This 90-nucleotide RNA from Nitrosomonas sp. Nm84 belongs to the Rfam family "tRNA". It scores 51 bits against the family's covariance model.
RNA sequence: GGAGAGGUACCGAAGCGGCUAUAACGGCGCUGACUCGAAAUCAGUUGGUCAGGGUAACUUGACACAUGGGUUCGAAUCCCAUCCUCUCCG
Numbered sequence: 001g002g003a004g005a006g007g008u009a010c011c012g013a014a015g016c017g018g019c020u021a022u023a024a025c026g027g028c029g030c031u032g033a034c035u036c037g038a039a040a041u042c043a044g045u046u047g048g049u050c051a052g053g054g055u056a057a058c059u060u061g062a063c064a065c066a067u068g069g070g071u072u073c074g075a076a077u078c079c080c081a082u083c084c085u086c087u088c089c090g
Stems, first nucleotide, its partner, number of pairs: 001089007010027003029045005066082005